[Rfam]
RNA sequence: GGGGUGUGAGAUAGAUUUACCUCCUCGUGGUGCACCCUGGGCAACGUAUAAUAAUACGGCCAAAAAGUUUAU
Numbered sequence: 001g002g003g004g005u006g007u008g009a010g011a012u013a014g015a016u017u018u019a020c021c022u023c024c025u026c027g028u029g030g031u032g033c034a035c036c037c038u039g040g041g042c043a044a045c046g047u048a049u050a051a052u053a054a055u056a057c058g059g060c061c062a063a064a065a066a067g068u069u070u071a072u
Stems, first nucleotide, its partner, number of pairs: 001038007019031003045058005
The family of this 72-nucleotide RNA sequence from Rodentolepis nana is "HDV ribozyme from F. prausnitzii".
It scores 46 bits against the family's covariance model.
The family's consensus secondary structure is taken from published work.
The family has 48 seed sequences and 3,803 matches in Rfam 15.1.
Rfam links the family to the GO term catalytic activity.
Taxonomically the source falls in Rodentolepis (Eukaryota, Eumetazoa, Lophotrochozoa, Cestoda).